[Rfam]
RNA sequence: ACCUGAUGAAAACACCGAAACCCUUUUGCCUACGUUGUCCACUGCUGUUUCCCUUGAACAAAGUCAAUAUGGCAUCCGGGUCGCAAGUAGAAACCUUGCCGGGUUGGUGAUGGAAACGUGCCAACCUCUCAGCUUUAGAAAGGAUUGUUUUCUGAUGGGUAUG
Number, nucleotide and partner (000 for none) at each position: 001a000002c000003c157004u000005g000006a000007u000008g000009a000010a000011a149012a148013c147014a146015c143016c142017g000018a000019a000020a081021c080022c079023c078024u000025u000026u000027u074028g073029c072030c071031u000032a000033c000034g068035u067036u066037g065038u000039c000040c000041a000042c000043u000044g000045c000046u000047g000048u000049u000050u000051c000052c000053c000054u000055u000056g000057a000058a000059c000060a000061a000062a000063g000064u000065c037066a036067a035068u034069a000070u000071g030072g029073c028074a027075u000076c000077c000078g023079g022080g021081u020082c000083g000084c098085a097086a096087g095088u000089a000090g000091a000092a000093a000094c000095c087096u086097u085098g084099c000100c000101g127102g126103g125104u124105u123106g122107g121108u120109g000110a119111u118112g117113g000114a000115a000116a000117c112118g111119u110120g108121c107122c106123a105124a104125c103126c102127u101128c138129u137130c000131a000132g000133c000134u000135u000136u000137a129138g128139a000140a000141a000142g016143g015144a000145u000146u014147g013148u012149u011150u000151u000152c000153u000154g000155a000156u000157g003158g000159g000160u000161a000162u000163g000

Shown here is a 163-nucleotide RNA from Kordiimonas sediminis, a member of the family "Molybdenum/Tungsten riboswitch aptamer (Moco RNA motif)".
NCBI's taxonomy places the organism under Bacteria, Pseudomonadati, Alphaproteobacteria, Kordiimonadaceae, Kordiimonas.
Its family is annotated with tungstate binding, regulation of gene expression and molybdenum ion binding in the Gene Ontology.
The match comes from Rfam's covariance-model search (49 bits).